Shown here is a 79-nucleotide sequence from Medicago truncatula, a member of the family "MIR5269 microRNA precursor family". Its family is annotated with miRNA-mediated post-transcriptional gene silencing and RISC complex in the Gene Ontology.
RNA sequence: UUGGUUUAAAUCAUUGUAGGUCUACACUUUAAAAAUUGAAUCCAAACAAAAUGGUGGGACAUACAUUGAUUACAUCCAA
Numbered sequence: 001u002u003g004g005u006u007u008a009a010a011u012c013a014u015u016g017u018a019g020g021u022c023u024a025c026a027c028u029u030u031a032a033a034a035a036u037u038g039a040a041u042c043c044a045a046a047c048a049a050a051a052u053g054g055u056g057g058g059a060c061a062u063a064c065a066u067u068g069a070u071u072a073c074a075u076c077c078a079a
Base pairs, nucleotide, nucleotide: 001079002078003077004076006074009071010070011069012068013067015065016064017063018062022057023056024055025053026052028050029049030048